Annotation
This 110-nucleotide sequence from Loigolactobacillus rennini belongs to the Rfam family "23S methyl RNA motif". Rfam classes the family as a cis-regulatory element. It scores 66 bits against the family's covariance model.
[Rfam]
RNA sequence: UUUUCAUUGACUUUUAUCAGAAUCACCUUUAAAUUUUGAUAAAAAUUUAUGAUUAAACCUUCACUAACGUACUGUCUCGCCGUGCUAACACCGAGAUCGUGCGUUUUUUU
Numbered sequence: 001u002u003u004u005c006a007u008u009g010a011c012u013u014u015u016a017u018c019a020g021a022a023u024c025a026c027c028u029u030u031a032a033a034u035u036u037u038g039a040u041a042a043a044a045a046u047u048u049a050u051g052a053u054u055a056a057a058c059c060u061u062c063a064c065u066a067a068c069g070u071a072c073u074g075u076c077u078c079g080c081c082g083u084g085c086u087a088a089c090a091c092c093g094a095g096a097u098c099g100u101g102c103g104u105u106u107u108u109u110u
Base pairs, nucleotide, nucleotide: 004052005051006050007049009047010046012044013043014042015041016040017039018038019037020036021035022034023033066105067104068103069102070101071100072099074097075096076095077094078093079092082091083090084089